A member of the RNA family "Prion pseudoknot", 46 nucleotides long.
Rfam 15.1 lists 421 matches to the family in 241 species.
The literature on the family includes a 2001 paper in Nucleic Acids Res by Barrette et al., "Pseudoknots in prion protein mRNAs confirmed by comparative sequence analysis and pattern searching".
The family's consensus secondary structure is taken from published work.
[Rfam]
RNA sequence: CCAGGGAGGCGGAGGCUGGGGUCAGCCCCAUGGGGGUGGAGGCUGG
Numbered sequence: 001c002c003a004g005g006g007a008g009g010c011g012g013a014g015g016c017u018g019g020g021g022u023c024a025g026c027c028c029c030a031u032g033g034g035g036g037u038g039g040a041g042g043c044u045g046g
Stems, first nucleotide, its partner, number of pairs: 001033003005029002
Source information
The sequence is in the family's curated seed alignment. By type it is a cis-regulatory element. This family represents a predicted pseudoknot structure found in prion protein mRNA. It has been suggested that the family has a possible effect in prion protein translation.